[Rfam]
RNA sequence: UGGUAGAUGCACCUUGAUCUUCAACUCCCCCUAGCUGGUUAACACCGACUGGGGGAUUUUUUU
Numbered sequence: 001u002g003g004u005a006g007a008u009g010c011a012c013c014u015u016g017a018u019c020u021u022c023a024a025c026u027c028c029c030c031c032u033a034g035c036u037g038g039u040u041a042a043c044a045c046c047g048a049c050u051g052g053g054g055g056a057u058u059u060u061u062u063u
Stems, first nucleotide, its partner, number of pairs: 002013003028055007036047003
RNA: Nitrogen stress-induced RNA 1